[Rfam]
RNA sequence: UUUUGCCUGUGGUAUCUAAUGACCGGAAUUAGGUUUUGUUUCUGGUCAUUUCGUUUUGAAGGCAUAAAUGAAGUUGAAAACAGGUCUUGCGACAUAGAUAGCUUUAUUCAUCAUUUAUAAGCUUUCUGUUACUAAAAUCCUGUUAACAUAA
Numbered sequence: 001u002u003u004u005g006c007c008u009g010u011g012g013u014a015u016c017u018a019a020u021g022a023c024c025g026g027a028a029u030u031a032g033g034u035u036u037u038g039u040u041u042c043u044g045g046u047c048a049u050u051u052c053g054u055u056u057u058g059a060a061g062g063c064a065u066a067a068a069u070g071a072a073g074u075u076g077a078a079a080a081c082a083g084g085u086c087u088u089g090c091g092a093c094a095u096a097g098a099u100a101g102c103u104u105u106a107u108u109c110a111u112c113a114u115u116u117a118u119a120a121g122c123u124u125u126c127u128g129u130u131a132c133u134a135a136a137a138u139c140c141u142g143u144u145a146a147c148a149u150a151a
Stems, first nucleotide, its partner, number of pairs: 004064005018050011032039001079144005094129005100123004
Dot-bracket structure: ...(((((.........(((((((((((...(......)))))))))))).........)))))..............(((((..........(((((.((((................)))).)))))..........))))).......